The family of this 121-nucleotide RNA is "DUF3268 RNA". The base pairs follow the family's consensus structure, which is taken from published work. By type it is a small RNA. Rfam's curators put it in the seed alignment.

[Rfam]
RNA sequence: GAUAAGGGAACGCACCCAGGCUCUCGAUUCUUCGGAAGAGCUCCCGGAGGCAGACGCAGCCAAGUGGGCUGCGGAAUCGUUACGGAAACGCGCAUUGAGCGGGACCACAAUGGUGCGGCCC
Numbered sequence: 001g002a003u004a005a006g007g008g009a010a011c012g013c014a015c016c017c018a019g020g021c022u023c024u025c026g027a028u029u030c031u032u033c034g035g036a037a038g039a040g041c042u043c044c045c046g047g048a049g050g051c052a053g054a055c056g057c058a059g060c061c062a063a064g065u066g067g068g069c070u071g072c073g074g075a076a077u078c079g080u081u082a083c084g085g086a087a088a089c090g091c092g093c094a095u096u097g098a099g100c101g102g103g104a105c106c107a108c109a110a111u112g113g114u115g116c117g118g119c120c121c
Stems, first nucleotide, its partner, number of pairs: 007121002011117006025079004029050007055073007084106002089101003